[Rfam]
Rfam assigns this 119-nucleotide RNA from Nocardia seriolae to the family "Actinobacteria sRNA Ms_IGR-7". The literature on the family includes a 2013 paper in RNA by Li et al., "Identification of small RNAs in Mycobacterium smegmatis using heterologous Hfq". It is annotated as a small RNA. NCBI's taxonomy places the organism under Bacteria, Bacillati, Actinomycetes, Mycobacteriales, Nocardia.
RNA sequence: UGAAAGUGUCUUUCGGAACUGGUCUUGAUUGUGGUGUGGUAACUCCAAUCUUUCCAGCUCAGAAGGCACUUUCUUCAUUUCAACACACCUGAAUCCACCGAUCGCAUCGGUGGAUUCAG
Numbered sequence: 001u002g003a004a005a006g007u008g009u010c011u012u013u014c015g016g017a018a019c020u021g022g023u024c025u026u027g028a029u030u031g032u033g034g035u036g037u038g039g040u041a042a043c044u045c046c047a048a049u050c051u052u053u054c055c056a057g058c059u060c061a062g063a064a065g066g067c068a069c070u071u072u073c074u075u076c077a078u079u080u081c082a083a084c085a086c087a088c089c090u091g092a093a094u095c096c097a098c099c100g101a102u103c104g105c106a107u108c109g110g111u112g113g114a115u116u117c118a119g
Stems, first nucleotide, its partner, number of pairs: 002073012016060002019057004027050003031046001033044003100116003105112002